This 79-nucleotide sequence from Aedes aegypti belongs to the Rfam family "mir-31 microRNA precursor family". It is one of the family's seed sequences. Rfam links the family to the GO terms gene silencing by miRNA and RISC complex. The family has 75 seed sequences and 1,181 matches in Rfam 15.1. The base pairs follow the family's consensus structure, which was predicted with RNAalifold.
RNA sequence: AAUUGGCAACUUGGCAAGAUGUUGGCAUAGCUGAAAGUUUUGAGUUUAGCUAUUCAACUUCUUGUCUAUUUUUCCAAUU
Numbered sequence: 001a002a003u004u005g006g007c008a009a010c011u012u013g014g015c016a017a018g019a020u021g022u023u024g025g026c027a028u029a030g031c032u033g034a035a036a037g038u039u040u041u042g043a044g045u046u047u048a049g050c051u052a053u054u055c056a057a058c059u060u061c062u063u064g065u066c067u068a069u070u071u072u073u074c075c076a077a078u079u
Base pairs, nucleotide, nucleotide: 005074006073008071009070011068013066014065015064016063017062018061019060021058023057025055027053028052029051030050031049